[Rfam]
Nucleotides: 111
Base pairs, nucleotide, nucleotide: 007105010102011101012100013099020049021048022047023046051091052090053089054087055086058085060083064079065078066077067076068075
Number, partner (000 for none) and nucleotide at each position: 001000a002000g003000g004000c005000a006000g007105c008000a009000c010102u011101c012100u013099g014000g015000a016000g017000a018000g019000a020049c021048c022047c023046g024000c025000a026000a027000u028000a029000c030000c031000a032000a033000a034000c035000a036000u037000a038000a039000a040000u041000g042000g043000u044000a045000g046023c047022g048021g049020g050000c051091g052090c053089c054087g055086a056000a057000g058085g059000u060083g061000a062000a063000c064079a065078c066077c067076c068075g069000c070000a071000a072000g073000c074000u075068c076067g077066g078065g079064u080000u081000a082000a083060c084000u085058c086055u087054c088000a089053g090052g091051c092000a093000a094000a095000a096000g097000g098000a099013c100012a101011g102010a103000a104000g105007g106000g107000c108000g109000g110000u111000g